[Rfam]
RNA sequence: GCAACUCUGGAAAGCAGGCGCACCCGCCAGGCGCGUCUCACCGACGGUGCAAGUCCCGCUCACGGGGCGAAGCUCUCAGGUCGCGGUCCCGCCGCGCUGACAGAGGGGGAGAU
Numbered sequence: 001g002c003a004a005c006u007c008u009g010g011a012a013a014g015c016a017g018g019c020g021c022a023c024c025c026g027c028c029a030g031g032c033g034c035g036u037c038u039c040a041c042c043g044a045c046g047g048u049g050c051a052a053g054u055c056c057c058g059c060u061c062a063c064g065g066g067g068c069g070a071a072g073c074u075c076u077c078a079g080g081u082c083g084c085g086g087u088c089c090c091g092c093c094g095c096g097c098u099g100a101c102a103g104a105g106g107g108g109g110a111g112a113u
Stems, first nucleotide, its partner, number of pairs: 002108001005105005016038006040081003043077002047075001049073001053068004
A member of the RNA family "Glycine riboswitch aptamer" from Nonomuraea phyllanthi, 113 nucleotides long. On this family, see Mandal et al., Science 2004: "A glycine-dependent riboswitch that uses cooperative binding to control gene expression". About the family: This family represents the bacterial glycine riboswitch.